[Rfam]
RNA: c-di-GMP-I riboswitch aptamer
RNA sequence: UUCGAAAAAUGGCAAACCCCGGGUAACCGGGGGACGCAAAGCCACGGGUCCUGAAUAUUCAGGAUAGCCGGGUUGCCGAA
Numbered sequence: 001u002u003c004g005a006a007a008a009a010u011g012g013c014a015a016a017c018c019c020c021g022g023g024u025a026a027c028c029g030g031g032g033g034a035c036g037c038a039a040a041g042c043c044a045c046g047g048g049u050c051c052u053g054a055a056u057a058u059u060c061a062g063g064a065u066a067g068c069c070g071g072g073u074u075g076c077c078g079a080a
Stems, first nucleotide, its partner, number of pairs: 012037002017032006040074004045070003048065007